[Rfam]
RNA sequence: UGCAGCCCCGCCUGACACUCGGUCUCAACCUCGGCUAAUUUAUGCAGGUGAGCAAAGUCUCAGGUGUCGUUGCGC
Numbered sequence: 001u002g003c004a005g006c007c008c009c010g011c012c013u014g015a016c017a018c019u020c021g022g023u024c025u026c027a028a029c030c031u032c033g034g035c036u037a038a039u040u041u042a043u044g045c046a047g048g049u050g051a052g053c054a055a056a057g058u059c060u061c062a063g064g065u066g067u068c069g070u071u072g073c074g075c
Stems, first nucleotide, its partner, number of pairs: 002073005009066007017058003024052004029048003

Shown here is a 75-nucleotide RNA from Enterobius vermicularis, a member of the family "mir-87 microRNA precursor family". For this family Rfam cites "Evolution, biogenesis, expression, and target predictions of a substantially expanded set of Drosophila microRNAs" (Ruby et al., Genome Res, 2007). Gene Ontology terms of the family: miRNA-mediated post-transcriptional gene silencing and RISC complex.